[Rfam]
RNA: L31-Actinobacteria ribosomal protein leader
Organism: Actinomyces howellii
RNA sequence: UCGGUCUCCGGUUCACCCGCCCGACCGGCUCGCGGGACCCGGGGCC
Numbered sequence: 001u002c003g004g005u006c007u008c009c010g011g012u013u014c015a016c017c018c019g020c021c022c023g024a025c026c027g028g029c030u031c032g033c034g035g036g037a038c039c040c041g042g043g044g045c046c
Stems, first nucleotide, its partner, number of pairs: 003046002006044001008042004016036005023029001